[Rfam]
RNA sequence: AGGUGUGCCGCGAACGGCAGAUACUUGCGGAACCCCGCCAGGACCGAAAGGUAGCAACGGUACGCGAGUUCCUCUGGGUGUUCGCGGCGCAUGCUUUUU
Numbered sequence: 001a002g003g004u005g006u007g008c009c010g011c012g013a014a015c016g017g018c019a020g021a022u023a024c025u026u027g028c029g030g031a032a033c034c035c036c037g038c039c040a041g042g043a044c045c046g047a048a049a050g051g052u053a054g055c056a057a058c059g060g061u062a063c064g065c066g067a068g069u070u071c072c073u074c075u076g077g078g079u080g081u082u083c084g085c086g087g088c089g090c091a092u093g094c095u096u097u098u099u
Stems, first nucleotide, its partner, number of pairs: 004093005009086006015078001018076004024068006035060003043052003
Rfam assigns this 99-nucleotide sequence from Chloroflexus aurantiacus to the family "Bacterial small signal recognition particle RNA". Taxonomically the source falls in Chloroflexus aurantiacus (Bacteria, Chloroflexia, Chloroflexineae, Chloroflexus). Rfam describes the family as follows. The signal recognition particle (SRP) is a universally conserved ribonucleoprotein involved in the co-translational targeting of proteins to membranes.